A member of the RNA family "Archaeal large subunit ribosomal RNA" from Natronoarchaeum philippinense, 453 nucleotides of a longer RNA.
A search with the family's covariance model found it, with a score of 2756 bits.
[Rfam]
RNA sequence: CCAACCGAAACAUGUCGAAGCAUGACCUCUGGCGAGACAGUUCGUGAGGUAGAGCCACCGAUUGGUGAUCCCGCCCCCGAGAGGGGUCGGCUCACCUGUCAAACUCCGAACUUACGAACGUUAUCGACCCAGGGAUUCCGGUGCACGGGGUAAGCCUGUGUACCAGAAGGGAGACAACCCACUGCCGGGUUAAGGUCCCCAAGUAUGGAUUAAGUGCAAUCCUCUGAAGGUGGUCCCGAGCCCCAGACAGCCGGGAGGUGAGCUUAGAAGCAGCUACCCUCUAAGAAAAGCGUAACAGCUUACCGGCCGAGGUUCGGGGCGCCCAAAAUGAUCGGGGCUCAAAUCCAUCACCGAGACCUGGCCGCACCCGUGACAGGGUGAUCGAGUAGGUUGGCGCUCCACGUGGGUGGAAGCACGGGCGAGAGCUCGUGUGGACCGCGUGGUGACGACAAU
Number, nucleotide and partner (000 for none) at each position: 001c394002c393003a392004a391005c390006c389007g000008a000009a000010a000011c024012a023013u022014g021015u020016c000017g000018a000019a000020g015021c014022a013023u012024g011025a000026c000027c134028u133029c132030u131031g130032g129033c000034g000035a000036g122037a121038c120039a000040g119041u118042u117043c116044g115045u114046g113047a112048g000049g000050u000051a000052g107053a105054g104055c000056c000057a000058c000059c000060g100061a099062u098063u000064g096065g095066u094067g093068a092069u000070c000071c000072c000073g088074c000075c086076c085077c084078c083079g000080a000081g000082a000083g078084g077085g076086g075087u000088c073089g000090g000091c000092u068093c067094a066095c065096c064097u000098g062099u061100c060101a000102a000103a000104c054105u053106c000107c052108g000109a000110a000111c000112u047113u046114a045115c044116g043117a042118a041119c040120g038121u037122u036123a000124u000125c000126g000127a000128c000129c032130c031131a030132g029133g028134g027135a000136u000137u000138c000139c000140g164141g163142u162143g161144c160145a159146c158147g157148g156149g000150g000151u000152a000153a000154g000155c000156c148157u147158g146159u145160g144161u143162a142163c141164c140165a000166g000167a000168a000169g180170g179171g178172a000173g000174a000175c000176a000177a000178c171179c170180c169181a000182c000183u000184g362185c361186c360187g359188g358189g357190u356191u000192a000193a000194g352195g351196u350197c000198c000199c000200c000201a000202a000203g349204u000205a348206u347207g346208g345209a344210u343211u000212a000213a000214g000215u000216g000217c000218a000219a000220u000221c000222c000223u000224c000225u000226g000227a000228a000229g323230g322231u321232g000233g320234u319235c318236c317237c316238g315239a314240g313241c312242c311243c000244c000245a000246g000247a000248c000249a000250g307251c306252c305253g304254g303255g000256a280257g279258g278259u000260g000261a275262g274263c273264u000265u000266a000267g000268a000269a000270g000271c000272a000273g263274c262275u261276a000277c000278c258279c257280u256281c285282u000283a000284a000285g281286a301287a000288a000289a000290g299291c298292g000293u000294a000295a000296c000297a000298g291299c290300u000301u286302a000303c254304c253305g252306g251307c250308c000309g000310a000311g242312g241313u240314u239315c238316g237317g236318g235319g234320c233321g231322c230323c229324c000325a000326a000327a000328a000329u000330g000331a000332u000333c000334g000335g000336g000337g000338c000339u000340c000341a000342a000343a210344u209345c208346c207347a206348u205349c203350a196351c195352c194353g000354a000355g000356a190357c189358c188359u187360g186361g185362c184363c384364g383365c380366a379367c378368c377369c376370g000371u000372g000373a000374c000375a000376g369377g368378g367379u366380g365381a000382u000383c364384g363385a000386g000387u000388a000389g006390g005391u004392u003393g002394g001395c448396g000397c445398u000399c443400c442401a441402c440403g439404u438405g437406g436407g000408u000409g000410g000411a000412a000413g432414c431415a430416c429417g428418g427419g426420c425421g000422a000423g000424a000425g420426c419427u418428c417429g416430u415431g414432u413433g000434g000435a000436c406437c405438g404439c403440g402441u401442g400443g399444u000445g397446a000447c000448g395449a000450c000451a000452a000453u000